Guanidine-II riboswitch aptamer (mini-ykkC): a 44-nucleotide RNA sequence from Aeromicrobium flavum.

RNA sequence: CCUCGAGGACGGCCUCGCGGAUCGUGUCGACGGGGACGACCUCG
Numbered sequence: 001c002c003u004c005g006a007g008g009a010c011g012g013c014c015u016c017g018c019g020g021a022u023c024g025u026g027u028c029g030a031c032g033g034g035g036a037c038g039a040c041c042u043c044g
Base pairs, nucleotide, nucleotide: 001020002019004017005016006015007014008013031044032043033042034041035040